[Rfam]
Nucleotides: 123
Base pairs, nucleotide, nucleotide: 006041008039009038010037011036013033014032015031016030017029068119069118071115072114073113076107077106078105079104086101087100088099089098090097091096
Number, partner (000 for none) and nucleotide at each position: 001000c002000a003000a004000u005000a006041c007000a008039a009038u010037g011036g012000a013033g014032a015031g016030a017029c018000u019000g020000u021000a022000a023000a024000a025000c026000a027000g028000u029017g030016u031015c032014u033013c034000u035000g036011c037010c038009a039008u040000g041006g042000a043000a044000u045000a046000c047000c048000a049000g050000a051000g052000a053000g054000g055000c056000a057000a058000a059000g060000u061000g062000a063000u064000c065000a066000u067000u068119g069118g070000c071115g072114a073113g074000u075000c076107a077106u078105c079104g080000u081000u082000u083000c084000g085000g086101c087100c088099g089098u090097c091096a092000u093000u094000a095000u096091u097090g098089g099088c100087g101086g102000a103000u104079c105078g106077a107076u108000u109000g110000u111000u112000a113073c114072u115071c116000u117000u118069c119068u120000a121000c122000a123000u

About this RNA: This 123-nucleotide sequence from Senna tora belongs to the Rfam family "Small nucleolar RNA snoR111". The match comes from Rfam's covariance-model search (78 bits). For this family Rfam cites "Experimental RNomics: identification of 140 candidates for small non-messenger RNAs in the plant Arabidopsis thaliana" (Marker et al., Curr Biol, 2002). NCBI's taxonomy places the organism under Eukaryota, Viridiplantae, Euphyllophyta, fabids, Senna.